[Rfam]
RNA sequence: UCCGCCGCGAGGCGGAAUCUGAAGGAAGCCAGCGGCAAACCUCCGGCCCGAGGACCACGAACCCCAGGUGAGGCUAGCGGCAGUUGGAUGAGCUUGCCGAACAAAGCGAAGUCCUUGUCACCGAAGGCUGCCGAGAGUAAAUGGGGCGGGUAGAUGGAGGGAAAGGCAACGUU
Numbered sequence: 001u002c003c004g005c006c007g008c009g010a011g012g013c014g015g016a017a018u019c020u021g022a023a024g025g026a027a028g029c030c031a032g033c034g035g036c037a038a039a040c041c042u043c044c045g046g047c048c049c050g051a052g053g054a055c056c057a058c059g060a061a062c063c064c065c066a067g068g069u070g071a072g073g074c075u076a077g078c079g080g081c082a083g084u085u086g087g088a089u090g091a092g093c094u095u096g097c098c099g100a101a102c103a104a105a106g107c108g109a110a111g112u113c114c115u116u117g118u119c120a121c122c123g124a125a126g127g128c129u130g131c132c133g134a135g136a137g138u139a140a141a142u143g144g145g146g147c148g149g150g151u152a153g154a155u156g157g158a159g160g161g162a163a164a165g166g167c168a169a170c171g172u173u
Base pairs, nucleotide, nucleotide: 001016002015003014004013005012006011028173030171036165040160041159042158043157044156045155046151047150048149049148050147062146063145064144065143066142073138074137075136078133079132080131081130082129083128086114087113088112089111092107093106094105095104
Group II catalytic intron D1-D4-3: a 173-nucleotide RNA sequence from Heliomicrobium modesticaldum. The source organism's lineage runs through Bacteria, Bacillati, Bacillota, Clostridia and Heliomicrobium modesticaldum. Group II introns are found in rRNA, tRNA and mRNA of organelles in fungi, plants and protists, and also in mRNA in bacteria. The base pairs follow the family's consensus structure.